[Rfam]
RNA sequence: CAUAGUGAGCGUAGGUGAUUACGGACUCGAUAGAGUCUGAGGAAAGUCCGGGCUCCCGAAAGACCAAACUUGCUGGGUAACGCCCAGUGCGAGCGAUCGUGAGGAUAGUGCCACAGAAAAAUACCGCCUUCGGGUAAGGGUGCAAAGGUGCGGUAAGAGCGCACCAGCAACGUCGUGAGGCGUUGGCUCGGUAAACCCCAGUUGGGAGCAAGGUCGGAGGAACUAGGGUUGGUCUUUUUCCCGUUCCGUGAAUAGUGGUACCGCUAGAGGUGUUUGGUAACAGACAUCCCAGAUAGAUAAUCGCCGUUGGUGUGCUAAUUUUAGCCACCGAUAACAGAACCCGGCUUAUGUCUGACUCUGAACU
Numbered sequence: 001c002a003u004a005g006u007g008a009g010c011g012u013a014g015g016u017g018a019u020u021a022c023g024g025a026c027u028c029g030a031u032a033g034a035g036u037c038u039g040a041g042g043a044a045a046g047u048c049c050g051g052g053c054u055c056c057c058g059a060a061a062g063a064c065c066a067a068a069c070u071u072g073c074u075g076g077g078u079a080a081c082g083c084c085c086a087g088u089g090c091g092a093g094c095g096a097u098c099g100u101g102a103g104g105a106u107a108g109u110g111c112c113a114c115a116g117a118a119a120a121a122u123a124c125c126g127c128c129u130u131c132g133g134g135u136a137a138g139g140g141u142g143c144a145a146a147g148g149u150g151c152g153g154u155a156a157g158a159g160c161g162c163a164c165c166a167g168c169a170a171c172g173u174c175g176u177g178a179g180g181c182g183u184u185g186g187c188u189c190g191g192u193a194a195a196c197c198c199c200a201g202u203u204g205g206g207a208g209c210a211a212g213g214u215c216g217g218a219g220g221a222a223c224u225a226g227g228g229u230u231g232g233u234c235u236u237u238u239u240c241c242c243g244u245u246c247c248g249u250g251a252a253u254a255g256u257g258g259u260a261c262c263g264c265u266a267g268a269g270g271u272g273u274u275u276g277g278u279a280a281c282a283g284a285c286a287u288c289c290c291a292g293a294u295a296g297a298u299a300a301u302c303g304c305c306g307u308u309g310g311u312g313u314g315c316u317a318a319u320u321u322u323a324g325c326c327a328c329c330g331a332u333a334a335c336a337g338a339a340c341c342c343g344g345c346u347u348a349u350g351u352c353u354g355a356c357u358c359u360g361a362a363c364u
Base pairs, nucleotide, nucleotide: 001360002359004357005356006355008353009352011349014305015304016303017302018301019300020299022039023038024037025036026035027034028033044347045346046345048344049343050342051341052340053208054207055206056205062247067203068202069201071200072199073087074086075085076084077083088102089100090099091098092097103198104197108196109195110192111191112190124139125138126135127134128133147165148164149163150162151161152160167187168185169184170183171182172181173180174179212262213261214260215258238252239251240250242248269288270287271286272285273284274283275282276281
This 364-nucleotide sequence from Planktothrix agardhii belongs to the Rfam family "Bacterial RNase P class A". The base pairs follow the family's consensus structure, which is taken from published work. Rfam classes the family as a ribozyme.